[Rfam]
RNA sequence: CUAUUACCAAACCCUAUUUCCACCUCCACGUGGUGACCGUUGGGGGCUUUUUCUUAACGAAAAGCUGCAGACGGAGAAGG
Numbered sequence: 001c002u003a004u005u006a007c008c009a010a011a012c013c014c015u016a017u018u019u020c021c022a023c024c025u026c027c028a029c030g031u032g033g034u035g036a037c038c039g040u041u042g043g044g045g046g047c048u049u050u051u052u053c054u055u056a057a058c059g060a061a062a063a064g065c066u067g068c069a070g071a072c073g074g075a076g077a078a079g080g
Stems, first nucleotide, its partner, number of pairs: 013080003017076004022034003045066007053059001
RNA: drz-agam-1 ribozyme